[Rfam]
RNA sequence: CGCGGUCCUCGGUAGUGGCUUUCGCUUUGGAACGCACCGAAGCGCGAGUCUCGAUCGAAGACCAGA
Numbered sequence: 001c002g003c004g005g006u007c008c009u010c011g012g013u014a015g016u017g018g019c020u021u022u023c024g025c026u027u028u029g030g031a032a033c034g035c036a037c038c039g040a041a042g043c044g045c046g047a048g049u050c051u052c053g054a055u056c057g058a059a060g061a062c063c064a065g066a
Stems, first nucleotide, its partner, number of pairs: 004063004009058005017050005023044007
RNA: Actino-pnp RNA
Organism: Glutamicibacter creatinolyticus